This 266-nucleotide RNA sequence from Desulfofarcimen acetoxidans belongs to the Rfam family "Bacterial large signal recognition particle RNA". Taxonomically the source falls in Desulfofarcimen acetoxidans (Bacteria, Bacillati, Peptococcaceae, Desulfofarcimen). The family's RNA type in Rfam is non-coding RNA gene.

[Rfam]
RNA sequence: UCGUGCUAGACGGGGAGGUAGCGGUGCCCUGUACCCGCAAUCCGCUGUAGCGGGGUUGAAUGCCUGCCCCCGGGUGUAAUUUGUGAGGCCAGGCUGUUGCAAGGGGUGUUGACGAUUGGGUCUUACGCGACGGAGAUUCUUGAACCGUGUCAGGUCCUGACGGAAGCAGCACUAAGAGAAGCCCUCCGGGUGCCGUGAGGUUGCCUGGUUCGAGCUACCUACAGCAGUAACGCUCGGAAGUUAUUAUCCAAAGGCGGGAUGCACGA
Numbered sequence: 001u002c003g004u005g006c007u008a009g010a011c012g013g014g015g016a017g018g019u020a021g022c023g024g025u026g027c028c029c030u031g032u033a034c035c036c037g038c039a040a041u042c043c044g045c046u047g048u049a050g051c052g053g054g055g056u057u058g059a060a061u062g063c064c065u066g067c068c069c070c071c072g073g074g075u076g077u078a079a080u081u082u083g084u085g086a087g088g089c090c091a092g093g094c095u096g097u098u099g100c101a102a103g104g105g106g107u108g109u110u111g112a113c114g115a116u117u118g119g120g121u122c123u124u125a126c127g128c129g130a131c132g133g134a135g136a137u138u139c140u141u142g143a144a145c146c147g148u149g150u151c152a153g154g155u156c157c158u159g160a161c162g163g164a165a166g167c168a169g170c171a172c173u174a175a176g177a178g179a180a181g182c183c184c185u186c187c188g189g190g191u192g193c194c195g196u197g198a199g200g201u202u203g204c205c206u207g208g209u210u211c212g213a214g215c216u217a218c219c220u221a222c223a224g225c226a227g228u229a230a231c232g233c234u235c236g237g238a239a240g241u242u243a244u245u246a247u248c249c250a251a252a253g254g255c256g257g258g259a260u261g262c263a264c265g266a
Stems, first nucleotide, its partner, number of pairs: 001266006007259001009057003012030004017025001019023001034054005063258006072249005078242005084236004092228001095226005103219002105216003114210008122199006128190001131188005137180005147172004155164003